Rfam assigns this 63-nucleotide sequence from Pigmentiphaga aceris to the family "Betaproteobacteria toxic small RNA". Rfam's curators write: Overexpression in amino aid rich medium attenuates growth, suggesting role in repressing amino acid intake and metabolism. The literature on the family includes a 2012 paper in Genome Res by Kimelman et al., "A vast collection of microbial genes that are toxic to bacteria".

[Rfam]
RNA sequence: AGUCUCCUCCACCCUCCUUUUUUGGUGGAUUUAGCCCGAAGCGAUUGCUCCGGGCUUUUUUUU
Numbered sequence: 001a002g003u004c005u006c007c008u009c010c011a012c013c014c015u016c017c018u019u020u021u022u023u024g025g026u027g028g029a030u031u032u033a034g035c036c037c038g039a040a041g042c043g044a045u046u047g048c049u050c051c052g053g054g055c056u057u058u059u060u061u062u063u
Stems, first nucleotide, its partner, number of pairs: 008029006033056006040049001